The record is a 137-nucleotide RNA sequence from Arachidicoccus ginsenosidivorans, which matches "Group II catalytic intron D1-D4-4" in Rfam. Taxonomically the source falls in Arachidicoccus (Bacteria, Bacteroidota, Chitinophagia, Chitinophagales). It scores 110 bits against the family's covariance model. The base pairs follow the family's consensus structure. Group II introns are found in rRNA, tRNA and mRNA of organelles in fungi, plants and protists, and also in mRNA in bacteria. On this family, see Bonen and Vogel, Trends Genet 2001: "The ins and outs of group II introns".
[Rfam]
RNA sequence: CAAUGGGAGAUAGACCCAUCAAGGCAAAAGUCAACAGCCUAGUAGCUAAACAGCAGGUGUGGAAGUAAUGAAGCAUCUGAAGCCUGUGGAUAAAGCCAUGUUUUGCAUGGUGAGCGAGUUUGCGGGCCGUAACGAAA
Numbered sequence: 001c002a003a004u005g006g007g008a009g010a011u012a013g014a015c016c017c018a019u020c021a022a023g024g025c026a027a028a029a030g031u032c033a034a035c036a037g038c039c040u041a042g043u044a045g046c047u048a049a050a051c052a053g054c055a056g057g058u059g060u061g062g063a064a065g066u067a068a069u070g071a072a073g074c075a076u077c078u079g080a081a082g083c084c085u086g087u088g089g090a091u092a093a094a095g096c097c098a099u100g101u102u103u104u105g106c107a108u109g110g111u112g113a114g115c116g117a118g119u120u121u122g123c124g125g126g127c128c129g130u131a132a133c134g135a136a137a
Base pairs, nucleotide, nucleotide: 020042022040023039024038050087051086052085053084054079055078056077057076058075059074064069095111096110097109098108099107100106114130115129116128